RNA sequence: UCUUUUCAAAUGAUGAAGCCAAUACGGAUGUAAUUGGGUUUCAAACCCUACUUUCCGAGAGCGCAUAAACCCAUGUGGAUUUUUCCGUUGCCUUCCUUCUGAUACGCCGU
Numbered sequence: 001u002c003u004u005u006u007c008a009a010a011u012g013a014u015g016a017a018g019c020c021a022a023u024a025c026g027g028a029u030g031u032a033a034u035u036g037g038g039u040u041u042c043a044a045a046c047c048c049u050a051c052u053u054u055c056c057g058a059g060a061g062c063g064c065a066u067a068a069a070c071c072c073a074u075g076u077g078g079a080u081u082u083u084u085c086c087g088u089u090g091c092c093u094u095c096c097u098u099c100u101g102a103u104a105c106g107c108c109g110u
Base pairs, nucleotide, nucleotide: 003109025087026086027085028084